The record is a 75-nucleotide sequence from Brevibacillus laterosporus, which matches "skipping-rope RNA" in Rfam. It is annotated as a small RNA. Pairs were carried over by alignment from the consensus structure, which is taken from published work.
RNA sequence: AAGCGGUGAGGUGGGAAAGGUUCCUCAUGCGCCCUCUGGGUUAAAAGAGAUGCAGGAUACGCCGCCCUGCCAUUU
Numbered sequence: 001a002a003g004c005g006g007u008g009a010g011g012u013g014g015g016a017a018a019g020g021u022u023c024c025u026c027a028u029g030c031g032c033c034c035u036c037u038g039g040g041u042u043a044a045a046a047g048a049g050a051u052g053c054a055g056g057a058u059a060c061g062c063c064g065c066c067c068u069g070c071c072a073u074u075u
Stems, first nucleotide, its partner, number of pairs: 005075001006073003011028005019063003030047001031041004052070005